[Rfam]
RNA: S4-Clostridia ribosomal protein leader
Organism: Marvinbryantia formatexigens
RNA sequence: GAAAGGUCGUCAGUAUUGCCGUUUGCUUAUCAGACGGCAGUCAUUUUUUGCGGCUGGGUGGUGGAAAAGAUUUCCAAAACCCCAAUUAAA
Numbered sequence: 001g002a003a004a005g006g007u008c009g010u011c012a013g014u015a016u017u018g019c020c021g022u023u024u025g026c027u028u029a030u031c032a033g034a035c036g037g038c039a040g041u042c043a044u045u046u047u048u049u050g051c052g053g054c055u056g057g058g059u060g061g062u063g064g065a066a067a068a069g070a071u072u073u074c075c076a077a078a079a080c081c082c083c084a085a086u087u088a089a090a
Stems, first nucleotide, its partner, number of pairs: 005055006012048001056082004